Record summary
c-di-GMP-I riboswitch aptamer: an 84-nucleotide RNA sequence from Cetobacterium ceti. Gene Ontology term of the family: cyclic-di-GMP binding. Lineage of the source: Bacteria > Fusobacteriati > Fusobacteriia > Fusobacteriales > Cetobacterium. Pairs were carried over by alignment from the consensus structure, which is taken from published work. About the family: GEMM was predicted in a large-scale screen for bacterial structured RNA regulatory elements. Genes associated with GEMM are involved in a diverse array of functions, including chemotaxis regulation, signal transduction, secretion and chitin.
RNA sequence: UAAUGAUAAAGGCAAACUUAAAGAAAUUUAAGGACGCAAAACUAUAGGGUCUUAACUCAGGGAGAAAGAUAGCCAGCUACCAAA
Dot-bracket structure: ...........((...((((((....))))))...))..(.((...(((((....(((...)))...)))..)))).)......